RNA sequence: UGUUUAGGGGGUCAAACUGUACGUUGUAUGUGCAAAUGAUGAAAUUCAUAAGCGUAUAGCUUUUCCCCUUAAACG
Numbered sequence: 001u002g003u004u005u006a007g008g009g010g011g012u013c014a015a016a017c018u019g020u021a022c023g024u025u026g027u028a029u030g031u032g033c034a035a036a037u038g039a040u041g042a043a044a045u046u047c048a049u050a051a052g053c054g055u056a057u058a059g060c061u062u063u064u065c066c067c068c069u070u071a072a073a074c075g
Stems, first nucleotide, its partner, number of pairs: 003073005009067003014062001017059005024052002027050004
RNA: mir-965 microRNA precursor family
Organism: Drosophila virilis